[Rfam]
RNA sequence: GACGCGCGCCUCUUCUAACCCUAAAAACUGGAGCUGUAGGUGUUGCUCUUUCAGCGUCGCCCGCUGUUUUUCUCGCUGGCUUUCAGCGGGCCAGAAAGUUCAGACCUCUCAGCAGAUCGUCGCGUCGUUCUCAACCACAAAAAAUGCCAGCGCAAAGCGCGUCAGCCUAGAACCUUGCGGCCCCGGGCCGCCCAGCCCCGCACCCGCCUUGAGGCCGCGGUUGGCCUGGAGUUCUCCGGACUCCGCUGCCGCCGCGAAGAGUUCGUCUCUGUCAGCCGCGGAGUAUCAGGGGCUGGGGCCAGGCCCGGACAGCGUCGCAAGUACAGUAACGGAGCUGGUCCUUGUUCGGUGGCUUCCCUGAGCUGUAGGAAGUACACCCAGAGCUCGGCUCCUACAACC
Numbered sequence: 001g002a003c004g005c006g007c008g009c010c011u012c013u014u015c016u017a018a019c020c021c022u023a024a025a026a027a028c029u030g031g032a033g034c035u036g037u038a039g040g041u042g043u044u045g046c047u048c049u050u051u052c053a054g055c056g057u058c059g060c061c062c063g064c065u066g067u068u069u070u071u072c073u074c075g076c077u078g079g080c081u082u083u084c085a086g087c088g089g090g091c092c093a094g095a096a097a098g099u100u101c102a103g104a105c106c107u108c109u110c111a112g113c114a115g116a117u118c119g120u121c122g123c124g125u126c127g128u129u130c131u132c133a134a135c136c137a138c139a140a141a142a143a144a145u146g147c148c149a150g151c152g153c154a155a156a157g158c159g160c161g162u163c164a165g166c167c168u169a170g171a172a173c174c175u176u177g178c179g180g181c182c183c184c185g186g187g188c189c190g191c192c193c194a195g196c197c198c199c200g201c202a203c204c205c206g207c208c209u210u211g212a213g214g215c216c217g218c219g220g221u222u223g224g225c226c227u228g229g230a231g232u233u234c235u236c237c238g239g240a241c242u243c244c245g246c247u248g249c250c251g252c253c254g255c256g257a258a259g260a261g262u263u264c265g266u267c268u269c270u271g272u273c274a275g276c277c278g279c280g281g282a283g284u285a286u287c288a289g290g291g292g293c294u295g296g297g298g299c300c301a302g303g304c305c306c307g308g309a310c311a312g313c314g315u316c317g318c319a320a321g322u323a324c325a326g327u328a329a330c331g332g333a334g335c336u337g338g339u340c341c342u343u344g345u346u347c348g349g350u351g352g353c354u355u356c357c358c359u360g361a362g363c364u365g366u367a368g369g370a371a372g373u374a375c376a377c378c379c380a381g382a383g384c385u386c387g388g389c390u391c392c393u394a395c396a397a398c399c
Stems, first nucleotide, its partner, number of pairs: 001163007048098004059091008075151006081144003174321007186305004190299004194294006204281004216256005222251004228244003258270004332391005337385003341381002349377003352373001354371004